[Rfam]
The family of this 62-nucleotide RNA from Marmota marmota is "U7 small nuclear RNA".

RNA sequence: AAAAGUUUCAGCUCUUUUAGAAAUUGUCUAGCUGGCUUUCUGGCUAUUAUCAGAACUCCUCC
Numbered sequence: 001a002a003a004a005g006u007u008u009c010a011g012c013u014c015u016u017u018u019a020g021a022a023a024u025u026g027u028c029u030a031g032c033u034g035g036c037u038u039u040c041u042g043g044c045u046a047u048u049a050u051c052a053g054a055a056c057u058c059c060u061c062c
Stems, first nucleotide, its partner, number of pairs: 034059002038055006

The base pairs follow the family's consensus structure, which was predicted with PFOLD.